Source information:
This 132-nucleotide RNA sequence from Fukomys damarensis belongs to the Rfam family "Small nucleolar RNA SNORA1". The family has 29 seed sequences and 1,282 matches in Rfam 15.1.

RNA sequence: AGCCUCAUUCUAGUUGAGAAUGGGCACUGUUGGAUAGUGUCCAAAGUUGGUCAGUGUGGCUAAAAUUGACACAGGUCAUGCUUCCAUCACAGUAAAUGAUUUACAGUGGUGACAAUGAGACCUGUAACAUUU
Numbered sequence: 001a002g003c004c005u006c007a008u009u010c011u012a013g014u015u016g017a018g019a020a021u022g023g024g025c026a027c028u029g030u031u032g033g034a035u036a037g038u039g040u041c042c043a044a045a046g047u048u049g050g051u052c053a054g055u056g057u058g059g060c061u062a063a064a065a066u067u068g069a070c071a072c073a074g075g076u077c078a079u080g081c082u083u084c085c086a087u088c089a090c091a092g093u094a095a096a097u098g099a100u101u102u103a104c105a106g107u108g109g110u111g112a113c114a115a116u117g118a119g120a121c122c123u124g125u126a127a128c129a130u131u132u
Stems, first nucleotide, its partner, number of pairs: 002060003006056003021043007071125005085111006
Annotation
NCBI's taxonomy places the organism under Eukaryota, Bilateria, Teleostomi, Hystricomorpha, Fukomys.